[Rfam]
The family of this 96-nucleotide sequence from Oryza sativa is "Small nucleolar RNA Z256". It is annotated as a C/D-box small nucleolar RNA. For this family Rfam cites "The high diversity of snoRNAs in plants: identification and comparative study of 120 snoRNA genes from Oryza sativa" (Chen et al., Nucleic Acids Res, 2003). Pairs were carried over by alignment from the consensus structure. It scores 55 bits against the family's covariance model. Taxonomically the source falls in Oryza sativa (Eukaryota, Tracheophyta, commelinids, Poaceae).

RNA sequence: AUCGACCCCAAAGCAUGUUAACACCAUCCACUAGGGCUUGGUUGACUGGCCUCCCCGAGUAUACCAUCAACAGCUGGGCCGAGCUGAAGGCUCGAU
Numbered sequence: 001a002u003c004g005a006c007c008c009c010a011a012a013g014c015a016u017g018u019u020a021a022c023a024c025c026a027u028c029c030a031c032u033a034g035g036g037c038u039u040g041g042u043u044g045a046c047u048g049g050c051c052u053c054c055c056c057g058a059g060u061a062u063a064c065c066a067u068c069a070a071c072a073g074c075u076g077g078g079c080c081g082a083g084c085u086g087a088a089g090g091c092u093c094g095a096u
Stems, first nucleotide, its partner, number of pairs: 003094003006090001
Dot-bracket structure: ..((((...................................................................................).)))..